[Rfam]
RNA sequence: CCGAGUCGCGUUAACUCAAAUUUUACGUUUUCGGUUUAGAACUUGGUUAUCCAGUUUUUGCUGGAGUUUCUCAGAGCGGUUCCUUCCCUCUGUUUGACGCCUCCCUGUUAACUUUCGAGAGCCGUUCUUCUGACGGCUCUUUUUCU
Numbered sequence: 001c002c003g004a005g006u007c008g009c010g011u012u013a014a015c016u017c018a019a020a021u022u023u024u025a026c027g028u029u030u031u032c033g034g035u036u037u038a039g040a041a042c043u044u045g046g047u048u049a050u051c052c053a054g055u056u057u058u059u060g061c062u063g064g065a066g067u068u069u070c071u072c073a074g075a076g077c078g079g080u081u082c083c084u085u086c087c088c089u090c091u092g093u094u095u096g097a098c099g100c101c102u103c104c105c106u107g108u109u110a111a112c113u114u115u116c117g118a119g120a121g122c123c124g125u126u127c128u129u130c131u132g133a134c135g136g137c138u139c140u141u142u143u144u145c146u
Stems, first nucleotide, its partner, number of pairs: 001046004005017001023038001025036001028033001050065004074090003078087002096109004117141009127132001
The record is a 146-nucleotide sequence from Pelagibacterium lacus, which matches "Alphaproteobacterial sRNA BjrC1505" in Rfam. The literature on the family includes a 2012 paper in RNA Biol by Madhugiri et al., "Small RNAs of the Bradyrhizobium/Rhodopseudomonas lineage and their analysis". The source organism's lineage runs through Bacteria, Pseudomonadati, Alphaproteobacteria, Hyphomicrobiales and Pelagibacterium. By type it is a small RNA.